[Rfam]
RNA sequence: UUUAUUCCAUAAUGAAUGAAUUGGCGGAAGAGUUCUUUAAAGACAAUAUUCGUGACCCAAGACUGACGAAUCCU
Dot-bracket structure: (((.......................(((...)))................................)))....
A member of the RNA family "Small nucleolar RNA CD11" from Drosophila mojavensis, 74 nucleotides long. Rfam links the family to the GO terms RNA processing and nucleolus. Rfam classes the family as a C/D-box small nucleolar RNA. The family's consensus secondary structure was predicted with ILM. NCBI's taxonomy places the organism under Eukaryota, Bilateria, Pancrustacea, Drosophila, mojavensis species complex. For this family Rfam cites "Genome-wide analyses of two families of snoRNA genes from Drosophila melanogaster, demonstrating the extensive utilization of introns for coding of snoRNAs" (Huang et al., RNA, 2005).